RNA sequence: UGGUUCUAUUCUAAGUCAAACUUCUCUAACUUGGACCAAGUUUGAAGAAAGAUAUAUUAACAUCUACAGUACUAAAUAAAUACAGUAUCAAGAUAUAUUUCGUGGUGGACUUAAUGGAACUAAUUUGAUGUUGUAGAUGUUGGUGUAAUUUUCUAUAAACUUGGUCAAAGUCAAAGAAGUUUAACAUAGGAAAAAACUGA
Numbered sequence: 001u002g003g004u005u006c007u008a009u010u011c012u013a014a015g016u017c018a019a020a021c022u023u024c025u026c027u028a029a030c031u032u033g034g035a036c037c038a039a040g041u042u043u044g045a046a047g048a049a050a051g052a053u054a055u056a057u058u059a060a061c062a063u064c065u066a067c068a069g070u071a072c073u074a075a076a077u078a079a080a081u082a083c084a085g086u087a088u089c090a091a092g093a094u095a096u097a098u099u100u101c102g103u104g105g106u107g108g109a110c111u112u113a114a115u116g117g118a119a120c121u122a123a124u125u126u127g128a129u130g131u132u133g134u135a136g137a138u139g140u141u142g143g144u145g146u147a148a149u150u151u152u153c154u155a156u157a158a159a160c161u162u163g164g165u166c167a168a169a170g171u172c173a174a175a176g177a178a179g180u181u182u183a184a185c186a187u188a189g190g191a192a193a194a195a196a197c198u199g200a
Base pairs, nucleotide, nucleotide: 005195007193009191011189012188013187015185016184018182019181020180021179022178023177024176025175031169032168034166035165046154047153048152049151050150052149053148055145056144057143059141060140061139062138063137064136065135066134067133068132073127074126075125076124077123
Record summary:
MIR1435 microRNA precursor family: a 200-nucleotide RNA from Paspalum vaginatum. The organism belongs to Paspalum, within Eukaryota. It scores 95 bits against the family's covariance model.